Shown here is a 63-nucleotide RNA sequence from Paenacidovorax monticola, a member of the family "Xanthine riboswitch aptamer (NMT1 RNA)". The family's consensus secondary structure is taken from published work.

RNA sequence: CCUCCGAGUAGAAGCGUUCAGCACGCGCCAUCCCCCGCGCGUCGCCCGGAAAUUGCUCAUGUC
Numbered sequence: 001c002c003u004c005c006g007a008g009u010a011g012a013a014g015c016g017u018u019c020a021g022c023a024c025g026c027g028c029c030a031u032c033c034c035c036c037g038c039g040c041g042u043c044g045c046c047c048g049g050a051a052a053u054u055g056c057u058c059a060u061g062u063c
Base pairs, nucleotide, nucleotide: 006058007057008056009055010054015048018050019049021045022044024041025040026039027038
The organism belongs to Paenacidovorax, within Bacteria.